RNA sequence: UCCGGAUAAACUUGUAUCCAUCCAAGAGAAUGGAGCAAGGCACUUUACGGAAUUAAUAUAAGUAACACAUUUCAGAAUUGAUAAAGGCUUACAUAUAAGUGAAAUCCUGAAAUGAUAGGAUAGCCGUAUGUCCUUUAGUAUUAAUAUACUAUAAAAAUAAUCUUGAAUAGCUUUAGUUGAGUUUUCAAGUUACGGAAGU
Dot-bracket structure: ((((.(.(..(((((.((((((.....).))))))))))....).).))))...................(((((.((........((.(......).))...)).))))).....(((((..[[[[[[))))).(((((......))))).....]....((((((.(............).)))))).]]]]]....

A member of the RNA family "IS605-orfB-I RNA", 199 nucleotides long. The sequence is in the family's curated seed alignment. The family's consensus secondary structure is taken from published work.